[Rfam]
RNA sequence: UAAAAGCUGCGUUGUACGUUAUCGUAUGAAGUUUCAACCUUUAUCGAUAAUUAGGGAGUUCUAUAUUAAAGACGGAACAGCAGGCUUUAUGAUUAAUUCAUAAGGACAUAUGAAGAAAUCUUUUGCGAACACCCACCUGGUGGAGCAGGUUUUGAAACUCCAUACACCUAAGCGGCAAAUGCGGCUGAAAA
Numbered sequence: 001u002a003a004a005a006g007c008u009g010c011g012u013u014g015u016a017c018g019u020u021a022u023c024g025u026a027u028g029a030a031g032u033u034u035c036a037a038c039c040u041u042u043a044u045c046g047a048u049a050a051u052u053a054g055g056g057a058g059u060u061c062u063a064u065a066u067u068a069a070a071g072a073c074g075g076a077a078c079a080g081c082a083g084g085c086u087u088u089a090u091g092a093u094u095a096a097u098u099c100a101u102a103a104g105g106a107c108a109u110a111u112g113a114a115g116a117a118a119u120c121u122u123u124u125g126c127g128a129a130c131a132c133c134c135a136c137c138u139g140g141u142g143g144a145g146c147a148g149g150u151u152u153u154g155a156a157a158c159u160c161c162a163u164a165c166a167c168c169u170a171a172g173c174g175g176c177a178a179a180u181g182c183g184g185c186u187g188a189a190a191a
Base pairs, nucleotide, nucleotide: 005186006185007184008183009182010181011180012178013177014176015175017174018173019172031158032157033156034155035154036153037152038149039148054134055133056132058130059129060128061127065124068123069122070121071120072119079111085105086104087103088102089101090100091099092098
Annotation:
6S / SsrS RNA: a 191-nucleotide sequence from Niallia nealsonii. NCBI's taxonomy places the organism under Bacteria, Bacillati, Bacillota, Bacillaceae, Niallia. The family's RNA type in Rfam is non-coding RNA gene.